A member of the RNA family "L17 ribosomal protein downstream element" from Desemzia incerta, 75 nucleotides long.
Pairs were carried over by alignment from the consensus structure, which is taken from published work.
NCBI's taxonomy places the organism under Bacteria, Bacillati, Bacillota, Bacilli, Desemzia.
The match comes from Rfam's covariance-model search (59 bits).
RNA sequence: GGAGUGUUAUGAUGAUGAAAGAUCCGUCUUUCUAGUCUAGCUCUAAACUUCUCUUAGAGAAUCAGUUCUCUAAGA
Numbered sequence: 001g002g003a004g005u006g007u008u009a010u011g012a013u014g015a016u017g018a019a020a021g022a023u024c025c026g027u028c029u030u031u032c033u034a035g036u037c038u039a040g041c042u043c044u045a046a047a048c049u050u051c052u053c054u055u056a057g058a059g060a061a062u063c064a065g066u067u068c069u070c071u072a073a074g075a
Base pairs, nucleotide, nucleotide: 002043003042004041005040011037012036013035017032018031019030020029021028022027052075053074054073055072056071057070058069059068060067